Source information:
The record is a 101-nucleotide RNA sequence from Acidovorax sp. JS42, which matches "traJ-II RNA" in Rfam. The family has 47 seed sequences and 174 matches in Rfam 15.1. The family's consensus secondary structure is taken from published work. The family's RNA type in Rfam is cis-regulatory element.
RNA sequence: GGGCAGGAUAUGUGAAGUAGGCCCACCGGCAAGCCGGUUGUCCUUCUUCACUGUCCCUUAUUCGCGCGGGGCGCUCAACGGGCAUCCUGCUCUGCGAGGCU
Number, nucleotide and partner (000 for none) at each position: 001g092002g091003g090004c089005a088006g087007g086008a085009u084010a000011u000012g051013u050014g049015a048016a047017g046018u000019a044020g043021g042022c000023c000024c000025a038026c037027c036028g035029g034030c000031a000032a000033g000034c029035c028036g027037g026038u025039u000040g000041u000042c021043c020044u019045u000046c017047u016048u015049c014050a013051c012052u000053g000054u000055c082056c081057c080058u000059u000060a000061u000062u000063c000064g074065c073066g072067c071068g000069g000070g000071g067072c066073g065074c064075u000076c000077a000078a000079c000080g057081g056082g055083c000084a009085u008086c007087c006088u005089g004090c003091u002092c001093u000094g000095c000096g000097a000098g000099g000100c000101u000